[Rfam]
Nucleotides: 155
Base pairs, nucleotide, nucleotide: 004023005022006021007020008019032053033052034051035050036049037048038047039046055075056074057073058072091155092154093153098152099151100150101149102148104146106143107142109140110139111138118133119132120131121130
Number, partner (000 for none) and nucleotide at each position: 001000u002000u003000g004023c005022c006021u007020u008019a009000a010000a011000c012000u013000a014000a015000u016000g017000a018000g019008u020007a021006a022005g023004g024000a025000a026000a027000a028000c029000a030000a031000a032053g033052c034051a035050a036049g037048c038047g039046g040000u041000g042000a043000g044000a045000g046039c047038u048037g049036c050035u051034u052033g053032c054000a055075g056074c057073g058072c059000c060000u061000a062000u063000c064000u065000c066000u067000a068000u069000a070000a071000u072058g073057c074056g075055c076000a077000a078000g079000a080000a081000u082000u083000u084000c085000u086000g087000g088000a089000g090000g091155g092154g093153g094000u095000u096000a097000a098152a099151g100150g101149c102148u103000g104146g105000c106143c107142a108000a109140g110139u111138g112000u113000u114000g115000a116000c117000g118133c119132u120131g121130c122000u123000u124000a125000c126000u127000u128000c129000u130121g131120c132119a133118g134000a135000a136000c137000u138111c139110g140109c141000u142107u143106g144000a145000g146104u147000g148102g149101g150100c151099c152098u153093c154092c155091c
This 155-nucleotide RNA from Vitis vinifera belongs to the Rfam family "U12 minor spliceosomal RNA". Lineage of the source: Eukaryota > Viridiplantae > Embryophyta > Viteae > Vitis. The family's RNA type in Rfam is spliceosomal small nuclear RNA. Gene Ontology terms of the family: U12 snRNP, pre-mRNA branch point binding and mRNA branch site recognition.